RNA sequence: GAUAUGCGUUGAAACGGAAGGUUGCUGUCGGUAUGACAGGUAAUUUCCGUGGAGUAUGUCCGAUUUUAAACCGGGCGA
Numbered sequence: 001g002a003u004a005u006g007c008g009u010u011g012a013a014a015c016g017g018a019a020g021g022u023u024g025c026u027g028u029c030g031g032u033a034u035g036a037c038a039g040g041u042a043a044u045u046u047c048c049g050u051g052g053a054g055u056a057u058g059u060c061c062g063a064u065u066u067u068a069a070a071c072c073g074g075g076c077g078a
Base pairs, nucleotide, nucleotide: 014050015049016048019046020045021044025039026038027037028036029035059078060077064075065074066073
Notes:
Shown here is a 78-nucleotide RNA from Ruminococcus flavefaciens, a member of the family "S10-Clostridia ribosomal protein leader". By type it is a cis-regulatory leader. The organism belongs to Ruminococcus flavefaciens, within Bacteria.